[Rfam]
RNA sequence: AGAAACCACAAGGGGAGCGUUAUGCUGAGAGUGAACGUUUGUUCUGACCCUUCGAACCUGUUAGAUAAUUCUAGCGCAGGGAUGUGGACUGACUGAAUU
Numbered sequence: 001a002g003a004a005a006c007c008a009c010a011a012g013g014g015g016a017g018c019g020u021u022a023u024g025c026u027g028a029g030a031g032u033g034a035a036c037g038u039u040u041g042u043u044c045u046g047a048c049c050c051u052u053c054g055a056a057c058c059u060g061u062u063a064g065a066u067a068a069u070u071c072u073a074g075c076g077c078a079g080g081g082a083u084g085u086g087g088a089c090u091g092a093c094u095g096a097a098u099u
Stems, first nucleotide, its partner, number of pairs: 006087005011051004016045001017025003033044004057080004061074004
A member of the RNA family "TPP riboswitch aptamer (THI element)" from Bacillus sp. Y1, 99 nucleotides long.
It scores 66 bits against the family's covariance model.